tRNA: an 85-nucleotide RNA from Dysosmobacter segnis.
RNA sequence: GGGUCAGUGCGCGUAGUUGGCGAUCGCAGCGGUCUGUAAAACCGUGACAUCUGAAACAUCGUUGGUUCAAUUCCAACCUGACCCA
Numbered sequence: 001g002g003g004u005c006a007g008u009g010c011g012c013g014u015a016g017u018u019g020g021c022g023a024u025c026g027c028a029g030c031g032g033u034c035u036g037u038a039a040a041a042c043c044g045u046g047a048c049a050u051c052u053g054a055a056a057c058a059u060c061g062u063u064g065g066u067u068c069a070a071u072u073c074c075a076a077c078c079u080g081a082c083c084c085a
Base pairs, nucleotide, nucleotide: 001084002083003082004081005080006079007078011027012026013025029045030044031043032042033041061077062076063075064074065073

About this RNA: The family's consensus secondary structure is taken from published work.